[Rfam]
RNA sequence: GUUCCGGGAAUUGGCCACUACCUCGCAGUCACGUGAUGCCACAAGGCGGGCACGCCGUGCAACAUCCUCUCUUCGUUUACACAUCUCCUCUUGAGAGGAUUGCGUCGUUCCGCCUUGAAUUUCAUAUUUCAUGUGAUGUGACGUAGUGGAACAUUCCUGACG
Numbered sequence: 001g002u003u004c005c006g007g008g009a010a011u012u013g014g015c016c017a018c019u020a021c022c023u024c025g026c027a028g029u030c031a032c033g034u035g036a037u038g039c040c041a042c043a044a045g046g047c048g049g050g051c052a053c054g055c056c057g058u059g060c061a062a063c064a065u066c067c068u069c070u071c072u073u074c075g076u077u078u079a080c081a082c083a084u085c086u087c088c089u090c091u092u093g094a095g096a097g098g099a100u101u102g103c104g105u106c107g108u109u110c111c112g113c114c115u116u117g118a119a120u121u122u123c124a125u126a127u128u129u130c131a132u133g134u135g136a137u138g139u140g141a142c143g144u145a146g147u148g149g150a151a152c153a154u155u156c157c158u159g160a161c162g
Base pairs, nucleotide, nucleotide: 005159006158007157008156009155010154015149016148017147018146019145020144021143023141024140025139026138029136030135031134032133034131035130036129
RNA: mir-989 microRNA precursor family